[Rfam]
RNA: mir-132 microRNA precursor family
RNA sequence: CUCCAGGGCAACCGUGGCUUUAGAUUGUUACUGUGUCUUGUGUUGGUAACAGUCUACAGCCAUGGUCGCUUGGGCCAG
Numbered sequence: 001c002u003c004c005a006g007g008g009c010a011a012c013c014g015u016g017g018c019u020u021u022a023g024a025u026u027g028u029u030a031c032u033g034u035g036u037c038u039u040g041u042g043u044u045g046g047u048a049a050c051a052g053u054c055u056a057c058a059g060c061c062a063u064g065g066u067c068g069c070u071u072g073g074g075c076c077a078g
Stems, first nucleotide, its partner, number of pairs: 012065002015062004023054010